[Rfam]
RNA sequence: GGGAUAUGAUGAGUGGUUGGCUCUCGCUAAUAUAAUGCGAGUUGGGUGUCCGCCCCAACGCCUGGUUACGACAAUUGGGCACUCCCAUCUCUUCCAAUCUGAUCCC
Numbered sequence: 001g002g003g004a005u006a007u008g009a010u011g012a013g014u015g016g017u018u019g020g021c022u023c024u025c026g027c028u029a030a031u032a033u034a035a036u037g038c039g040a041g042u043u044g045g046g047u048g049u050c051c052g053c054c055c056c057a058a059c060g061c062c063u064g065g066u067u068a069c070g071a072c073a074a075u076u077g078g079g080c081a082c083u084c085c086c087a088u089c090u091c092u093u094c095c096a097a098u099c100u101g102a103u104c105c106c
Stems, first nucleotide, its partner, number of pairs: 001106004014097001016095001023041005044084007063077004
Dot-bracket structure: ((((.........(.(......(((((.........)))))..(((((((............((((.......)))))))))))..........).).....))))

This 106-nucleotide sequence from Cucumis sativus belongs to the Rfam family "Small nucleolar RNA Z279/snoR105/snoR108". This family includes the plant snoRNAs known as Z279, snoR105 and snoR108. For this family Rfam cites "Experimental RNomics: identification of 140 candidates for small non-messenger RNAs in the plant Arabidopsis thaliana" (Marker et al., Curr Biol, 2002). Pairs were carried over by alignment from the consensus structure, which was predicted with PFOLD. Rfam links the family to the GO terms nucleolus and RNA processing.